A member of the RNA family "c-di-AMP riboswitch aptamer (ydaO/yuaA leader)" from Alicyclobacillus tolerans, 168 nucleotides long.

[Rfam]
RNA sequence: CGACAUAAAACGCCGAACCCUCUUGGCGUCGGGGGACGGGGGACAUUCUUUUUUGGGGCGAAUCCUAAAGAGCUGAAUAUUCUAUUUUUUCUAUGCUUUUUUGGUAGGGCGCUCACAAGCUGCGGCCCGAGCCCGUCAACUAACCUCGUAGGUGCACAGGGAGCUUAA
Numbered sequence: 001c002g003a004c005a006u007a008a009a010a011c012g013c014c015g016a017a018c019c020c021u022c023u024u025g026g027c028g029u030c031g032g033g034g035g036a037c038g039g040g041g042g043a044c045a046u047u048c049u050u051u052u053u054u055g056g057g058g059c060g061a062a063u064c065c066u067a068a069a070g071a072g073c074u075g076a077a078u079a080u081u082c083u084a085u086u087u088u089u090u091c092u093a094u095g096c097u098u099u100u101u102u103g104g105u106a107g108g109g110c111g112c113u114c115a116c117a118a119g120c121u122g123c124g125g126c127c128c129g130a131g132c133c134c135g136u137c138a139a140c141u142a143a144c145c146u147c148g149u150a151g152g153u154g155c156a157c158a159g160g161g162a163g164c165u166u167a168a
Base pairs, nucleotide, nucleotide: 011154012153013152014151018035019034020033021032022031036149037148038147039146040145041144046055056134057133058132064104065103067101068100069099070098071097072096073095107128108127109126110125
Dot-bracket structure: ..........((((...(((((........)))))((((((....(........)(((.....((.(((((((.....................))))))).))..((((..............))))...))).........)))))).))))..............